[Rfam]
Background: Shown here is a 111-nucleotide RNA from Ferrimonas sediminicola, a member of the family "Ribosomal S15 leader". The source organism's lineage runs through Bacteria, Gammaproteobacteria, Alteromonadales, Ferrimonadaceae and Ferrimonas. The match comes from Rfam's covariance-model search (82 bits). The family's consensus secondary structure is taken from published work. It is annotated as a cis-regulatory leader.
RNA sequence: CGCUGGAGCUGAAUUAGUGAUCGGCCCAGCUUAUUUGUAAAUUCGGAGAUUAUUAUGUCACUAAGCACUGAAGCGAAAGCAAAGAUUCUGGCUGAGUUUGGCCGUGGCGAG
Numbered sequence: 001c002g003c004u005g006g007a008g009c010u011g012a013a014u015u016a017g018u019g020a021u022c023g024g025c026c027c028a029g030c031u032u033a034u035u036u037g038u039a040a041a042u043u044c045g046g047a048g049a050u051u052a053u054u055a056u057g058u059c060a061c062u063a064a065g066c067a068c069u070g071a072a073g074c075g076a077a078a079g080c081a082a083a084g085a086u087u088c089u090g091g092c093u094g095a096g097u098u099u100g101g102c103c104g105u106g107g108c109g110a111g
Stems, first nucleotide, its partner, number of pairs: 008025005042065002045062002048059001